A member of the RNA family "drz-agam-2-2 ribozyme" from Anopheles gambiae, 179 nucleotides long. The literature on the family includes a 2009 paper in Science by Webb et al., "Widespread occurrence of self-cleaving ribozymes". Gene Ontology term of the family: catalytic activity. The match comes from Rfam's covariance-model search (144 bits).
[Rfam]
RNA sequence: AUCAGUCAAAUCCUUUCGCGGGCCGGAUUUAAUGUUUAAUGUUAAUGUUCCACCUCCUACUCCUACUCAAUACGUCCCCGUCGUACAGAACGGUAACAUUUCUCUCAAUUAUCCAAGCUUGGGUAUACGGGGAAACCCAACCCCUUGGGCGGAUGGGUUGCAUGGCUAAAUUGAGAGGG
Numbered sequence: 001a002u003c004a005g006u007c008a009a010a011u012c013c014u015u016u017c018g019c020g021g022g023c024c025g026g027a028u029u030u031a032a033u034g035u036u037u038a039a040u041g042u043u044a045a046u047g048u049u050c051c052a053c054c055u056c057c058u059a060c061u062c063c064u065a066c067u068c069a070a071u072a073c074g075u076c077c078c079c080g081u082c083g084u085a086c087a088g089a090a091c092g093g094u095a096a097c098a099u100u101u102c103u104c105u106c107a108a109u110u111a112u113c114c115a116a117g118c119u120u121g122g123g124u125a126u127a128c129g130g131g132g133a134a135a136c137c138c139a140a141c142c143c144c145u146u147g148g149g150c151g152g153a154u155g156g157g158u159u160g161c162a163u164g165g166c167u168a169a170a171u172u173g174a175g176a177g178g179g
Stems, first nucleotide, its partner, number of pairs: 011089002015085001020057002022054001025051003029045002061179004066175006072084003076093002097164003101160001104157003111154004119140006142149002